[Rfam]
RNA sequence: UGACCCUGAAACCCAGAGCAGGUGAGGCCUGUCUGACUGUUUCUGGGCGACCCAAUCUUGGUUUCCAUGGUUG
Numbered sequence: 001u002g003a004c005c006c007u008g009a010a011a012c013c014c015a016g017a018g019c020a021g022g023u024g025a026g027g028c029c030u031g032u033c034u035g036a037c038u039g040u041u042u043c044u045g046g047g048c049g050a051c052c053c054a055a056u057c058u059u060g061g062u063u064u065c066c067a068u069g070g071u072u073g
Stems, first nucleotide, its partner, number of pairs: 002072004007067001009064005015058002021052003027048004
mir-551 microRNA precursor family: a 73-nucleotide RNA sequence from Bos taurus. Its family is annotated with miRNA-mediated post-transcriptional gene silencing and RISC complex in the Gene Ontology. NCBI's taxonomy places the organism under Eukaryota, Eutheria, Pecora, Bovinae, Bos.